[Rfam]
Nucleotides: 087
Stems, first nucleotide, its partner, number of pairs: 001087006
Number, partner (000 for none) and nucleotide at each position: 001087g002086c003085u004084g005083u006082a007000c008000a009000a010000u011000g012000a013000u014000g015000a016000g017000a018000c019000u020000u021000u022000g023000g024000c025000u026000c027000c028000c029000u030000c031000u032000a033000c034000u035000g036000a037000u038000a039000c040000u041000u042000g043000u044000g045000a046000g047000g048000a049000a050000a051000g052000c053000a054000g055000c056000c057000a058000u059000a060000u061000g062000u063000u064000a065000c066000c067000c068000a069000a070000u071000a072000c073000c074000u075000c076000u077000g078000a079000g080000a081000g082006u083005a084004c085003a086002g087001c
Description:
Small nucleolar RNA SNORD100: an 87-nucleotide RNA from Gallus gallus. NCBI's taxonomy places the organism under Eukaryota, Bilateria, Craniata, Euteleostomi, Gallus. A reference for the family is Galardi et al. (2002), "Purified box C/D snoRNPs are able to reproduce site-specific 2'-O-methylation of target RNA in vitro", Mol Cell Biol. Rfam links the family to the GO terms RNA processing and nucleolus. It is one of the family's seed sequences.